TPP riboswitch aptamer (THI element): a 115-nucleotide RNA sequence from Alkalihalophilus pseudofirmus. Lineage of the source: Bacteria > Bacilli > Bacillaceae > Alkalihalophilus > Alkalihalophilus pseudofirmus.
[Rfam]
RNA sequence: AGCAUUAACUAGGGGUGUCCAACGAGCUGGGCUGAGAGAAAAACGCGUUGAAGUUUUUUAACCCUUCGGACCUGAUCUGGCUCAUACCAGCGUAGGGAAGUUAGAGACUCCUAAG
Numbered sequence: 001a002g003c004a005u006u007a008a009c010u011a012g013g014g015g016u017g018u019c020c021a022a023c024g025a026g027c028u029g030g031g032c033u034g035a036g037a038g039a040a041a042a043a044c045g046c047g048u049u050g051a052a053g054u055u056u057u058u059u060a061a062c063c064c065u066u067c068g069g070a071c072c073u074g075a076u077c078u079g080g081c082u083c084a085u086a087c088c089a090g091c092g093u094a095g096g097g098a099a100g101u102u103a104g105a106g107a108c109u110c111c112u113a114a115g
Stems, first nucleotide, its partner, number of pairs: 006103005011065004017032005039058005071096004077090004
The family's consensus secondary structure is taken from published work.